A member of the RNA family "Small nucleolar RNA SNORD91 family" from Alligator sinensis, 88 nucleotides long. On this family, see Huttenhofer et al., EMBO J 2001: "RNomics: an experimental approach that identifies 201 candidates for novel, small, non-messenger RNAs in mouse". The family has 24 seed sequences and 977 matches in Rfam 15.1. The match comes from Rfam's covariance-model search (56 bits).
[Rfam]
RNA sequence: UGGAGUUGCCAAUGAUGGGUCAAGCCAGCAUGUCUGAACCUGGCUGAUAUCUUCUGAUGCCCUUUAUGGCUCUGAGGCUUCUUCCGCA
Number, nucleotide and partner (000 for none) at each position: 001u000002g000003g000004a082005g081006u000007u000008g078009c077010c076011a000012a000013u000014g000015a000016u000017g000018g000019g000020u000021c000022a000023a000024g000025c000026c000027a000028g000029c000030a000031u000032g000033u000034c000035u000036g000037a000038a000039c000040c000041u000042g000043g000044c000045u000046g000047a000048u000049a000050u000051c000052u000053u000054c000055u000056g000057a000058u000059g000060c000061c000062c000063u000064u000065u000066a000067u000068g000069g000070c000071u000072c000073u000074g000075a000076g010077g009078c008079u000080u000081c005082u004083u000084c000085c000086g000087c000088a000